RNA sequence: AUGUGUUCUCAGGGCGGGGUGCAAUUCCCCACCGGCGGUGAUGGGCAUCAGCCCUCAGCCCGCGAGCGCUCACCGGCAUGGCCGGUGGGGUCAGCAGACCCGGUGCGAUUCCGGGGCCGACGGUCACAGUCCGGAUGAAAGAGAGCGCAG
Numbered sequence: 001a002u003g004u005g006u007u008c009u010c011a012g013g014g015c016g017g018g019g020u021g022c023a024a025u026u027c028c029c030c031a032c033c034g035g036c037g038g039u040g041a042u043g044g045g046c047a048u049c050a051g052c053c054c055u056c057a058g059c060c061c062g063c064g065a066g067c068g069c070u071c072a073c074c075g076g077c078a079u080g081g082c083c084g085g086u087g088g089g090g091u092c093a094g095c096a097g098a099c100c101c102g103g104u105g106c107g108a109u110u111c112c113g114g115g116g117c118c119g120a121c122g123g124u125c126a127c128a129g130u131c132c133g134g135a136u137g138a139a140a141g142a143g144a145g146c147g148c149a150g
Stems, first nucleotide, its partner, number of pairs: 003148008017029003031130002033119002035063004058117002066095002099115005121133003
The family of this 150-nucleotide sequence from Rubrivivax sp. is "FMN riboswitch aptamer (RFN element)". From the family's description: The RFN element is a highly conserved domain that is found frequently in the 5'-untranslated regions of prokaryotic mRNAs that encode for flavin mononucleotide (FMN) biosynthesis and transport proteins.